[Rfam]
This 81-nucleotide RNA from Scleropages formosus belongs to the Rfam family "mir-194 microRNA precursor family".
RNA sequence: UGGUGCUUGCUGGCUGUAACAGCAACUCCAUGUGGAAGGGCUCAGAUUUCCCGUGGAGCCGCUGUUAUCUGCGGAGGGACA
Numbered sequence: 001u002g003g004u005g006c007u008u009g010c011u012g013g014c015u016g017u018a019a020c021a022g023c024a025a026c027u028c029c030a031u032g033u034g035g036a037a038g039g040g041c042u043c044a045g046a047u048u049u050c051c052c053g054u055g056g057a058g059c060c061g062c063u064g065u066u067a068u069c070u071g072c073g074g075a076g077g078g079a080c081a
Base pairs, nucleotide, nucleotide: 010074011073012072016068017067018066019065020064021063022062023061026058027057028056029055030054031053034051035050

Gene Ontology terms of the family: RISC complex and miRNA-mediated post-transcriptional gene silencing. The literature on the family includes a 2003 paper in Mol Cancer Res by Michael et al., "Reduced accumulation of specific microRNAs in colorectal neoplasia".